[Rfam]
The family of this 73-nucleotide RNA from Methylobacterium sp. 4-46 is "Makes More Granules Regulator RNA (mmgR)". NCBI's taxonomy places the organism under Bacteria, Pseudomonadati, Alphaproteobacteria, Hyphomicrobiales, Methylobacterium. Rfam's curators write: SuhB later renamed mmgR (makes more granules regulator) was a putative non-coding RNA found multiple times in the Agrobacterium tumefaciens genome and related alpha-proteobacteria. Clan: suhB sRNA clan.
RNA sequence: UUUCGCAGCCCUCAUGGCCGUUUCCUCCCUAGACUUCUGGCCGCUGCUGAAAGCGGCCCUCUUUUUAGCUUAU
Numbered sequence: 001u002u003u004c005g006c007a008g009c010c011c012u013c014a015u016g017g018c019c020g021u022u023u024c025c026u027c028c029c030u031a032g033a034c035u036u037c038u039g040g041c042c043g044c045u046g047c048u049g050a051a052a053g054c055g056g057c058c059c060u061c062u063u064u065u066u067a068g069c070u071u072a073u
Base pairs, nucleotide, nucleotide: 008019010017011016039058040057041056042055043054044053045052